[Rfam]
RNA: Streptomyces sRNA scr5239
Organism: Streptomyces formicae
RNA sequence: CAUCCGCCCUCCCCGCACAGGAGGGUGGACCGAGGAACCGGCGCUCUCUGCCCUGACCGCGCCGGAGCCUCCCGAUCGGCGGCCAGUACCGCACAUUCUGGCGGCCGAUGCACCUGAAGGGCUGCGGUGCCGCGGGUGGGUUGAGGGUCCUGCCCCUGGCGC
Numbered sequence: 001c002a003u004c005c006g007c008c009c010u011c012c013c014c015g016c017a018c019a020g021g022a023g024g025g026u027g028g029a030c031c032g033a034g035g036a037a038c039c040g041g042c043g044c045u046c047u048c049u050g051c052c053c054u055g056a057c058c059g060c061g062c063c064g065g066a067g068c069c070u071c072c073c074g075a076u077c078g079g080c081g082g083c084c085a086g087u088a089c090c091g092c093a094c095a096u097u098c099u100g101g102c103g104g105c106c107g108a109u110g111c112a113c114c115u116g117a118a119g120g121g122c123u124g125c126g127g128u129g130c131c132g133c134g135g136g137u138g139g140g141u142u143g144a145g146g147g148u149c150c151u152g153c154c155c156c157u158g159g160c161g162c
Base pairs, nucleotide, nucleotide: 003029004028005027006026008024009023010022011021012020032071033070034069035068038065039064040063041062043060044059045056046055076108077107078106079105080104082102085099086098111129112128113127114126119123132156135154136153137152138151139150140149